[Rfam]
RNA sequence: GCAGACUCACUAUGCAUCUGGCUGCAUCGCCAGGUGGGCGCUCGUUCCCUCUUCCAGAGAAACAAACAUUCCAGCGUGCUGUGGCCGCCUGACUUAUACGGGCAAUGCAGCUGCCUGGAGAUAGAGCU
Numbered sequence: 001g002c003a004g005a006c007u008c009a010c011u012a013u014g015c016a017u018c019u020g021g022c023u024g025c026a027u028c029g030c031c032a033g034g035u036g037g038g039c040g041c042u043c044g045u046u047c048c049c050u051c052u053u054c055c056a057g058a059g060a061a062a063c064a065a066a067c068a069u070u071c072c073a074g075c076g077u078g079c080u081g082u083g084g085c086c087g088c089c090u091g092a093c094u095u096a097u098a099c100g101g102g103c104a105a106u107g108c109a110g111c112u113g114c115c116u117g118g119a120g121a122u123a124g125a126g127c128u
Stems, first nucleotide, its partner, number of pairs: 001054001003052003014041002017038004022033003070119005078111006087103004
Dot-bracket structure: (.(((........((.((((.(((......))).)))).))........))).)...............(((((...((((((...((((.........))))..))))))...))))).........